[Rfam]
The record is a 207-nucleotide RNA sequence from an Alphaproteobacteria bacterium, which matches "permuted transfer-messenger RNA" in Rfam.

RNA sequence: GAUGCUGAAUGCUUUAUGCAAUAGGCUUUUUGGACCCGGGGGCGGUACCCGGCAGCUCCACCAAUAAAAUCUAUGGGGCUGAUUAGUAUCGACAGAGGCUGAAAGAUAAAGAGUGCGUCCGGGGUUGUUCCCGUAAAAGACUGAAAAAAACUGAAUGGCGAUAGAAUCGCUGCGAACUCAAAUGUUCGCCUUGCAUUGGCUGCCUAA
Numbered sequence: 001g002a003u004g005c006u007g008a009a010u011g012c013u014u015u016a017u018g019c020a021a022u023a024g025g026c027u028u029u030u031u032g033g034a035c036c037c038g039g040g041g042g043c044g045g046u047a048c049c050c051g052g053c054a055g056c057u058c059c060a061c062c063a064a065u066a067a068a069a070u071c072u073a074u075g076g077g078g079c080u081g082a083u084u085a086g087u088a089u090c091g092a093c094a095g096a097g098g099c100u101g102a103a104a105g106a107u108a109a110a111g112a113g114u115g116c117g118u119c120c121g122g123g124g125u126u127g128u129u130c131c132c133g134u135a136a137a138a139g140a141c142u143g144a145a146a147a148a149a150a151c152u153g154a155a156u157g158g159c160g161a162u163a164g165a166a167u168c169g170c171u172g173c174g175a176a177c178u179c180a181a182a183u184g185u186u187c188g189c190c191u192u193g194c195a196u197u198g199g200c201u202g203c204c205u206a207a
Stems, first nucleotide, its partner, number of pairs: 001119005014109004026098003030095003036052005053081007120133004
The source organism's lineage runs through Bacteria, Pseudomonadati, Pseudomonadota and Alphaproteobacteria.